[Rfam]
RNA sequence: GGAUGAAUCUCUGGAGAGUCUCUGAAAAAGAGCGCCGAAGGUGUAAGACGGCAGGAGCUGUUGAUCUCUCAGGCAAAAGGACAGGGCAUAUCAA
Numbered sequence: 001g002g003a004u005g006a007a008u009c010u011c012u013g014g015a016g017a018g019u020c021u022c023u024g025a026a027a028a029a030g031a032g033c034g035c036c037g038a039a040g041g042u043g044u045a046a047g048a049c050g051g052c053a054g055g056a057g058c059u060g061u062u063g064a065u066c067u068c069u070c071a072g073g074c075a076a077a078a079g080g081a082c083a084g085g086g087c088a089u090a091u092c093a094a
Base pairs, nucleotide, nucleotide: 006089009086010085011084012083013082020032021031022030023029034074035073036072037070038069041068043066047062048061049060050059